[Rfam]
The record is a 46-nucleotide sequence, which matches "eL15-Euryarchaeota ribosomal protein leader" in Rfam. The base pairs follow the family's consensus structure, which is taken from published work.

RNA sequence: GCGGACACGAUCCGCUGGAAUGUAACCUUAAAGGUUGAACCACAAA
Numbered sequence: 001g002c003g004g005a006c007a008c009g010a011u012c013c014g015c016u017g018g019a020a021u022g023u024a025a026c027c028u029u030a031a032a033g034g035u036u037g038a039a040c041c042a043c044a045a046a
Stems, first nucleotide, its partner, number of pairs: 001015005016042003024036005
A reference for the family is Eckert and Weinberg (2020), "Discovery of 20 novel ribosomal leader candidates in bacteria and archaea", BMC Microbiol. The sequence is in the family's curated seed alignment.